[Rfam]
RNA sequence: GUGGCAAUGAUGAGUGGCGCAGGGGUAAAGACAUCAGCUGGAUAAUGGGAGCUGAGUGUGGGUGUUCUCUCUUCAGCCUGCGUGUGGUGGGCUUUAAGUGGCAUCUACACAAUAAAAAGUCGCCUAUGCCUGAGCCAC
Numbered sequence: 001g002u003g004g005c006a007a008u009g010a011u012g013a014g015u016g017g018c019g020c021a022g023g024g025g026u027a028a029a030g031a032c033a034u035c036a037g038c039u040g041g042a043u044a045a046u047g048g049g050a051g052c053u054g055a056g057u058g059u060g061g062g063u064g065u066u067c068u069c070u071c072u073u074c075a076g077c078c079u080g081c082g083u084g085u086g087g088u089g090g091g092c093u094u095u096a097a098g099u100g101g102c103a104u105c106u107a108c109a110c111a112a113u114a115a116a117a118a119g120u121c122g123c124c125u126a127u128g129c130c131u132g133a134g135c136c137a138c
Stems, first nucleotide, its partner, number of pairs: 001138005
This 138-nucleotide RNA sequence from Chiloscyllium punctatum belongs to the Rfam family "Small nucleolar RNA SNORD94". The match comes from Rfam's covariance-model search (110 bits). The family's RNA type in Rfam is C/D-box small nucleolar RNA. The organism belongs to Chiloscyllium, within Eukaryota. Rfam links the family to the GO terms RNA processing and nucleolus.